[Rfam]
Nucleotides: 075
Base pairs, nucleotide, nucleotide: 001075002074003073004072005071006070007069
Number, partner (000 for none) and nucleotide at each position: 001075c002074u003073g004072a005071g006070c007069u008000a009000g010000u011000g012000a013000u014000g015000a016000u017000u018000a019000u020000g021000u022000u023000a024000u025000c026000c027000c028000u029000g030000g031000c032000u033000g034000a035000a036000a037000u038000c039000a040000c041000a042000u043000u044000u045000u046000c047000c048000c049000c050000u051000g052000u053000g054000g055000a056000a057000u058000c059000a060000u061000g062000a063000u064000u065000c066000u067000g068000a069007g070006g071005c072004u073003c074002a075001g

Source information: Shown here is a 75-nucleotide sequence from Anas platyrhynchos, a member of the family "Small nucleolar RNA R38". The organism belongs to Anas platyrhynchos, within Eukaryota. Rfam links the family to the GO terms nucleolus and RNA processing. snoR38 is a C/D box small nucleolar RNA conserved across yeast, human, Arabidopsis and rice. It is encoded in the intron of elongation factor-1 gamma in both pombe and cerevisiae. snoR38 guides the methylation of 2'-O-ribose sites in 28S rRNA. Pairs were carried over by alignment from the consensus structure, which was predicted with PFOLD. For this family Rfam cites "Antisense snoRNAs: a family of nucleolar RNAs with long complementarities to rRNA" (Bachellerie et al., Trends Biochem Sci, 1995).